The family of this 97-nucleotide sequence from Phycisphaerae bacterium RAS1 is "Bacterial small signal recognition particle RNA".
The family's consensus secondary structure is taken from published work.
NCBI's taxonomy places the organism under Bacteria, Pseudomonadati, Planctomycetota, Phycisphaerae.
Rfam describes the family as follows. The signal recognition particle (SRP) is a universally conserved ribonucleoprotein involved in the co-translational targeting of proteins to membranes.
A search with the family's covariance model found it, with a score of 54 bits.
[Rfam]
RNA sequence: GGUCGGGCCGGUGCAGUGCGUCGGUCGGACAGCGGGUCAGGAUCGGAAGGUAGCAGCCCACCCGGUUUGAUCCACGUGCAUCGAAAACCUGGCUGGG
Numbered sequence: 001g002g003u004c005g006g007g008c009c010g011g012u013g014c015a016g017u018g019c020g021u022c023g024g025u026c027g028g029a030c031a032g033c034g035g036g037u038c039a040g041g042a043u044c045g046g047a048a049g050g051u052a053g054c055a056g057c058c059c060a061c062c063c064g065g066u067u068u069g070a071u072c073c074a075c076g077u078g079c080a081u082c083g084a085a086a087a088c089c090u091g092g093c094u095g096g097g
Stems, first nucleotide, its partner, number of pairs: 003092005009083005014076001016075003020071002023067006034059004042051003